[Rfam]
RNA sequence: GCGCCAGCGGGAGGCUCUGACACGCGGCCCAUGCUCCGGCCGCCGGGACCGCGUCCAGCCACUGGCGAGACCGACCUGCGCAUGC
Numbered sequence: 001g002c003g004c005c006a007g008c009g010g011g012a013g014g015c016u017c018u019g020a021c022a023c024g025c026g027g028c029c030c031a032u033g034c035u036c037c038g039g040c041c042g043c044c045g046g047g048a049c050c051g052c053g054u055c056c057a058g059c060c061a062c063u064g065g066c067g068a069g070a071c072c073g074a075c076c077u078g079c080g081c082a083u084g085c
Stems, first nucleotide, its partner, number of pairs: 001085003007079005013060003022054006029047001038072002041067004
Dot-bracket structure: (((...(((((.(((......((((((.(........[[.[[[[..).))))))...)))...]]]]...]]..)))))...)))